About this RNA:
Shown here is an 86-nucleotide RNA from Sutterella parvirubra, a member of the family "SAH (S-adenosyl-L-homocysteine) riboswitch aptamer". The family's consensus secondary structure is taken from published work. The match comes from Rfam's covariance-model search (60 bits).
RNA sequence: ACCGACGAGGAGCGCUGCGACGGAACCCACGGGUUCCGCCAGGCUCGCCGGUGCGGUUUUGCUUUCCCCAACGGCGCUCGUCCGAU
Numbered sequence: 001a002c003c004g005a006c007g008a009g010g011a012g013c014g015c016u017g018c019g020a021c022g023g024a025a026c027c028c029a030c031g032g033g034u035u036c037c038g039c040c041a042g043g044c045u046c047g048c049c050g051g052u053g054c055g056g057u058u059u060u061g062c063u064u065u066c067c068c069c070a071a072c073g074g075c076g077c078u079c080g081u082c083c084g085a086u
Base pairs, nucleotide, nucleotide: 002051003050004049006047007046008045021038022037023036024035025034026033